[Rfam]
A member of the RNA family "6C RNA" from Mycolicibacterium smegmatis, 76 nucleotides long. For this family Rfam cites "Identification of 22 candidate structured RNAs in bacteria using the CMfinder comparative genomics pipeline" (Weinberg et al., Nucleic Acids Res, 2007). The source organism's lineage runs through Bacteria, Actinomycetes, Mycobacteriales, Mycobacterium (subgen. Mycolicibacterium) and Mycolicibacterium smegmatis. Rfam's curators put it in the seed alignment. Its family is annotated with sporulation in the Gene Ontology.
RNA sequence: GGUGUAUCAGCCCGACCCCCCGGGGCUGAUACGCGACGACCUCCGCCUCCUCCCCCCCUGGCGGGGGUCGUCUUCU
Numbered sequence: 001g002g003u004g005u006a007u008c009a010g011c012c013c014g015a016c017c018c019c020c021c022g023g024g025g026c027u028g029a030u031a032c033g034c035g036a037c038g039a040c041c042u043c044c045g046c047c048u049c050c051u052c053c054c055c056c057c058c059u060g061g062c063g064g065g066g067g068u069c070g071u072c073u074u075c076u
Stems, first nucleotide, its partner, number of pairs: 002034012035072013